[Rfam]
RNA sequence: AGCUUCUUAUGAUGUUUUUUCCUACAUUGUCUGAUUUAAUUGAUUAAAACAUUUCUGAAGAAGCU
Numbered sequence: 001a002g003c004u005u006c007u008u009a010u011g012a013u014g015u016u017u018u019u020u021c022c023u024a025c026a027u028u029g030u031c032u033g034a035u036u037u038a039a040u041u042g043a044u045u046a047a048a049a050c051a052u053u054u055c056u057g058a059a060g061a062a063g064c065u
Base pairs, nucleotide, nucleotide: 001065002064004062005061006060007059
A member of the RNA family "Small nucleolar RNA SNORD34" from Biomphalaria glabrata, 65 nucleotides long. Rfam links the family to the GO terms RNA processing and nucleolus. A reference for the family is Galardi et al. (2002), "Purified box C/D snoRNPs are able to reproduce site-specific 2'-O-methylation of target RNA in vitro", Mol Cell Biol. Rfam's curators write: snoRNA U34 is found in intron 5 of the ribosomal protein L13a gene in humans. The family's consensus secondary structure was predicted with PFOLD.